[Rfam]
RNA sequence: GUGCCUUAAACUAAUGAGUAAGGAAAAUAACGCUGUUCAGUGAAAAAUCUGUAUCAGCAAUUAAUUACUCCAAUUUUUGUAAUGGGGCAACAGGUUACCCGCUUGAGUAGAUUCCGCUACUUUUAGGAAUCUAUUCGUGUUGAAGCGACCUAGCCC
Numbered sequence: 001g002u003g004c005c006u007u008a009a010a011c012u013a014a015u016g017a018g019u020a021a022g023g024a025a026a027a028u029a030a031c032g033c034u035g036u037u038c039a040g041u042g043a044a045a046a047a048u049c050u051g052u053a054u055c056a057g058c059a060a061u062u063a064a065u066u067a068c069u070c071c072a073a074u075u076u077u078u079g080u081a082a083u084g085g086g087g088c089a090a091c092a093g094g095u096u097a098c099c100c101g102c103u104u105g106a107g108u109a110g111a112u113u114c115c116g117c118u119a120c121u122u123u124u125a126g127g128a129a130u131c132u133a134u135u136c137g138u139g140u141u142g143a144a145g146c147g148a149c150c151u152a153g154c155c156c
Base pairs, nucleotide, nucleotide: 004023005022006021007020008019032048051068052067053066085156086155087154088153092151093150094149095148096147098145101140102139104137105136106135107134108133112129113128114127115126
Annotation
Rfam assigns this 156-nucleotide RNA from Rotaria magnacalcarata to the family "U12 minor spliceosomal RNA". On this family, see Tarn and Steitz, Trends Biochem Sci 1997: "Pre-mRNA splicing: the discovery of a new spliceosome doubles the challenge". It scores 77 bits against the family's covariance model. It is annotated as a spliceosomal small nuclear RNA.